[Rfam]
RNA sequence: GGGGGUUUAGCUCAGCUGGUAGAGCGUCUCGUUCGCAAUGAGAAGGUCGGGGGUUCGAAUCCCCCAACCUCCA
Number, nucleotide and partner (000 for none) at each position: 001g072002g071003g070004g069005g068006u067007u066008u000009a000010g025011c024012u023013c022014a000015g000016c000017u000018g000019g000020u000021a000022g013023a012024g011025c010026g000027u043028c042029u041030c040031g039032u000033u000034c000035g000036c000037a000038a000039u031040g030041a029042g028043a027044a000045g000046g000047u000048c000049g065050g064051g063052g062053g061054u000055u000056c000057g000058a000059a000060u000061c053062c052063c051064c050065c049066a007067a006068c005069c004070u003071c002072c001073a000
Description: The family of this 73-nucleotide sequence from Candidatus Methylacidithermus pantelleriae is "tRNA". The organism belongs to Candidatus Methylacidithermus, within Bacteria. Gene Ontology term of the family: triplet codon-amino acid adaptor activity. The base pairs follow the family's consensus structure, which is taken from published work. The family's RNA type in Rfam is transfer RNA.